[Rfam]
RNA sequence: UUUGGCAUUGGCUUUGCGCGCCAUAAUGCCGUUGCCCACAGCGUGCAGCAAGUGCGUUUUACCGAGACCGGUUCCGCCGUA
Numbered sequence: 001u002u003u004g005g006c007a008u009u010g011g012c013u014u015u016g017c018g019c020g021c022c023a024u025a026a027u028g029c030c031g032u033u034g035c036c037c038a039c040a041g042c043g044u045g046c047a048g049c050a051a052g053u054g055c056g057u058u059u060u061a062c063c064g065a066g067a068c069c070g071g072u073u074c075c076g077c078c079g080u081a
Stems, first nucleotide, its partner, number of pairs: 005042002009038003013034001016032003020029002052077003056074001061072003
A member of the RNA family "antisense RNA of dnaA mRNA" from Rouxiella badensis, 81 nucleotides long. It scores 75 bits against the family's covariance model.